About this RNA:
The family of this 104-nucleotide RNA sequence from Acidovorax sp. CF316 is "TPP riboswitch aptamer (THI element)".

[Rfam]
RNA sequence: CGCCUUCGCUAGGGGUGUCGGCCUGCGCAAGCAGCUCCGACUGAGAGAGUCCCUUUGAACCUGAUUGAGAUCAUCCUCGCGCAGGGAAGCAGUCCGCAUACGCC
Numbered sequence: 001c002g003c004c005u006u007c008g009c010u011a012g013g014g015g016u017g018u019c020g021g022c023c024u025g026c027g028c029a030a031g032c033a034g035c036u037c038c039g040a041c042u043g044a045g046a047g048a049g050u051c052c053c054u055u056u057g058a059a060c061c062u063g064a065u066u067g068a069g070a071u072c073a074u075c076c077u078c079g080c081g082c083a084g085g086g087a088a089g090c091a092g093u094c095c096g097c098a099u100a101c102g103c104c
Stems, first nucleotide, its partner, number of pairs: 006092001008090003011054004016048001017041005060085004066079004
About this RNA:
A search with the family's covariance model found it, with a score of 58 bits.